[Rfam]
RNA sequence: GAGAAUCAUCUCUCCCAGAUAAUGGCACUCUCAAACAAGUUUCCAAAUUGUUUGAAAGGCUAUUUCUUGGUCAGAUGACUCUC
Number, nucleotide and partner (000 for none) at each position: 001g083002a082003g081004a080005a000006u078007c077008a000009u075010c074011u073012c000013u000014c070015c069016c000017a067018g066019a065020u000021a064022a063023u062024g061025g060026c059027a000028c058029u057030c000031u055032c054033a053034a052035a051036c050037a049038a048039g000040u000041u000042u000043c000044c000045a000046a000047a000048u038049u037050g036051u035052u034053u033054g032055a031056a000057a029058g028059g026060c025061u024062a023063u022064u021065u019066c018067u017068u000069g015070g014071u000072c000073a011074g010075a009076u000077g007078a006079c000080u004081c003082u002083c001
Notes
The record is an 83-nucleotide sequence from Homo sapiens, which matches "mir-488 microRNA precursor family" in Rfam. A reference for the family is Bentwich et al. (2005), "Identification of hundreds of conserved and nonconserved human microRNAs", Nat Genet. Lineage of the source: Eukaryota > Eutheria > Haplorrhini > Simiiformes > Homo.